[Rfam]
RNA: Lysine riboswitch aptamer
Organism: Izhakiella capsodis
RNA sequence: CAAGCCAGAAGAGGCGCGUCGCCCAGGUAGGAUGUCGGAGAUUCCGCAAUCUGUGAACACAUCUGAGGGGGGUGCGAUGCCGAGAUAUGUGCCAUGCGGAGUGGUACAUAUCGGCUACAGGGGCUGAAUCUCCUGGGUUGUCAUCCGGCGUAUUUGCGAUUGAAUACGCUGCAAGGUGAGGUGCUUCUGGGAGG
Dot-bracket structure: .....((((((....((((((.((.....((((((.......................))))))......))..))))))...((((((((((((.....))))))))))))((((.((((((......)))))))))).(((((.............................)))))....)))))).....
Numbered sequence: 001c002a003a004g005c006c007a008g009a010a011g012a013g014g015c016g017c018g019u020c021g022c023c024c025a026g027g028u029a030g031g032a033u034g035u036c037g038g039a040g041a042u043u044c045c046g047c048a049a050u051c052u053g054u055g056a057a058c059a060c061a062u063c064u065g066a067g068g069g070g071g072g073u074g075c076g077a078u079g080c081c082g083a084g085a086u087a088u089g090u091g092c093c094a095u096g097c098g099g100a101g102u103g104g105u106a107c108a109u110a111u112c113g114g115c116u117a118c119a120g121g122g123g124c125u126g127a128a129u130c131u132c133c134u135g136g137g138u139u140g141u142c143a144u145c146c147g148g149c150g151u152a153u154u155u156g157c158g159a160u161u162g163a164a165u166a167c168g169c170u171g172c173a174a175g176g177u178g179a180g181g182u183g184c185u186u187c188u189g190g191g192a193g194g
Stems, first nucleotide, its partner, number of pairs: 006189006016080006023072002030064006084112012113139004118135006141179005